[Rfam]
RNA sequence: GCGGGCUUGGAUUCAUGAUGCUGUGGGCCCGCAUCACAGCGCGUCAAGCGAGCGAUCACGGGGAUCUCCAGACGCUCGUCGGUAUAGCCGCGUCACUACGAAAGUAGGCCGCCGGGGGAAGCUCGCAUUGCUCCUGGCGCUCCGAAUUUUAUAAGAGUGACGCGCCGCACGCCGUGGAGGGGUAGCUGUGUUGGUUGGACAGCUAGAAAGUGUGGAACGCCG
Numbered sequence: 001g002c003g004g005g006c007u008u009g010g011a012u013u014c015a016u017g018a019u020g021c022u023g024u025g026g027g028c029c030c031g032c033a034u035c036a037c038a039g040c041g042c043g044u045c046a047a048g049c050g051a052g053c054g055a056u057c058a059c060g061g062g063g064a065u066c067u068c069c070a071g072a073c074g075c076u077c078g079u080c081g082g083u084a085u086a087g088c089c090g091c092g093u094c095a096c097u098a099c100g101a102a103a104g105u106a107g108g109c110c111g112c113c114g115g116g117g118g119a120a121g122c123u124c125g126c127a128u129u130g131c132u133c134c135u136g137g138c139g140c141u142c143c144g145a146a147u148u149u150u151a152u153a154a155g156a157g158u159g160a161c162g163c164g165c166c167g168c169a170c171g172c173c174g175u176g177g178a179g180g181g182g183u184a185g186c187u188g189u190g191u192u193g194g195u196u197g198g199a200c201a202g203c204u205a206g207a208a209a210g211u212g213u214g215g216a217a218c219g220c221c222g
Stems, first nucleotide, its partner, number of pairs: 001032007048079006067178004089164009165215006183205007
Notes:
Rfam assigns this 222-nucleotide sequence to the family "PAGEV RNA". It is one of the family's seed sequences. Rfam classes the family as a small RNA.